[Rfam]
RNA sequence: AAUCCUGGGUAAUUGCGGUCGGCAAUUGUCGGCUGAGGAAAGUCCAUUCUCGCACAAGCUGAGAUGCUUGUAGUGUUCGUGGUCAGCGAAAAAAUAAGCUGGCGGACGUCUUAAUUGGCGUUACGGCGGAAAAAACGACUAAGGCUUCGGCUAUGUCCGAGUAUUCCUGAAAAGUGCCACAGUGACGAUACAACAUGGGAAACUGUGUUGGUGGAACGCGGUAAACCCCUCGAGCGGGAAACCCAAACUUAUGGUAGGGGAGCUUCACAUCUGGAAAUGAACUAAAUGUGGGGGGAGAACAAGUUAUUGUUCUCGAGAUAGAUGAUUACCACCAAGUCAGUGAGCCUGAAUCCUGAUUUGGUACAAAACAUGGCUUACAGGG
Numbered sequence: 001a002a003u004c005c006u007g008g009g010u011a012a013u014u015g016c017g018g019u020c021g022g023c024a025a026u027u028g029u030c031g032g033c034u035g036a037g038g039a040a041a042g043u044c045c046a047u048u049c050u051c052g053c054a055c056a057a058g059c060u061g062a063g064a065u066g067c068u069u070g071u072a073g074u075g076u077u078c079g080u081g082g083u084c085a086g087c088g089a090a091a092a093a094a095u096a097a098g099c100u101g102g103c104g105g106a107c108g109u110c111u112u113a114a115u116u117g118g119c120g121u122u123a124c125g126g127c128g129g130a131a132a133a134a135a136c137g138a139c140u141a142a143g144g145c146u147u148c149g150g151c152u153a154u155g156u157c158c159g160a161g162u163a164u165u166c167c168u169g170a171a172a173a174g175u176g177c178c179a180c181a182g183u184g185a186c187g188a189u190a191c192a193a194c195a196u197g198g199g200a201a202a203c204u205g206u207g208u209u210g211g212u213g214g215a216a217c218g219c220g221g222u223a224a225a226c227c228c229c230u231c232g233a234g235c236g237g238g239a240a241a242c243c244c245a246a247a248c249u250u251a252u253g254g255u256a257g258g259g260g261a262g263c264u265u266c267a268c269a270u271c272u273g274g275a276a277a278u279g280a281a282c283u284a285a286a287u288g289u290g291g292g293g294g295g296a297g298a299a300c301a302a303g304u305u306a307u308u309g310u311u312c313u314c315g316a317g318a319u320a321g322a323u324g325a326u327u328a329c330c331a332c333c334a335a336g337u338c339a340g341u342g343a344g345c346c347u348g349a350a351u352c353c354u355g356a357u358u359u360g361g362u363a364c365a366a367a368a369c370a371u372g373g374c375u376u377a378c379a380g381g382g
Stems, first nucleotide, its partner, number of pairs: 004382003007378001008330007016035006040376003044373004049238005054071006077233003081229001082103006104124001105122006125228002128167004137157003143152003174226002176222003191210008242259003263293007295314008332361009
Dot-bracket structure: ...(((((((((((.((((((........))))))....[[[.[[[[.(((((((((((......)))))).....(((.(((((((..........))))))(((((((......)))))).)((.((((.....(((...(((....)))..)))......))))......(((((............((((((((....)))))))).........)))..))))).))))))))...(((............)))...(((((((.................))))))).((((((((....)))))))).........))))))).(((((((((............)))))))))........]]]]]]].).)))
RNA: Bacterial RNase P class B